Overview: The family of this 143-nucleotide RNA from Cervus elaphus is "Small nucleolar RNA SNORA70". It is annotated as an H/ACA-box small nucleolar RNA. The literature on the family includes a 2000 paper in IUBMB Life by Charette and Gray, "Pseudouridine in RNA: what, where, how, and why". Taxonomically the source falls in Cervus elaphus (Eukaryota, Bilateria, Sarcopterygii, Cervidae).
RNA sequence: UUGCAGCCAAUUGAGUCAACGGUGCUCUUUUCCCCAUGGUUGGGGGGCGGGGGUUGCUGUGUGCUGCUUGCAAACGACAGCCUUCUGGGUAGGCUAUGCAGCCUGCUGCCUGUUCAGCUUGCUCUAAGGGACCUGGGACAUUC
Dot-bracket structure: ..(((.............((((...(((((..................)))))...)))).))).......................(((........(((.((...........)).))).........)))..........
Rfam describes the family as follows. snoRNA U70 seems to be exclusive to mammals and is a member of the H/ACA class of snoRNA which contain H (ANANNA) and ACA box motifs.